[Rfam]
RNA sequence: AAUAAAAGAUGAGCUUGAAAAAAAAGACAAGCAUAUGUCUGAAUCUUUAAUGAAGAGAAACUUUUUCGUGUCUGAUAUU
Numbered sequence: 001a002a003u004a005a006a007a008g009a010u011g012a013g014c015u016u017g018a019a020a021a022a023a024a025a026g027a028c029a030a031g032c033a034u035a036u037g038u039c040u041g042a043a044u045c046u047u048u049a050a051u052g053a054a055g056a057g058a059a060a061c062u063u064u065u066u067c068g069u070g071u072c073u074g075a076u077a078u079u
Stems, first nucleotide, its partner, number of pairs: 001079004

Rfam assigns this 79-nucleotide RNA sequence from Debaryomyces hansenii to the family "Small nucleolar RNA SNORD27". The base pairs follow the family's consensus structure. Rfam 15.1 lists 218 matches to the family in 175 species.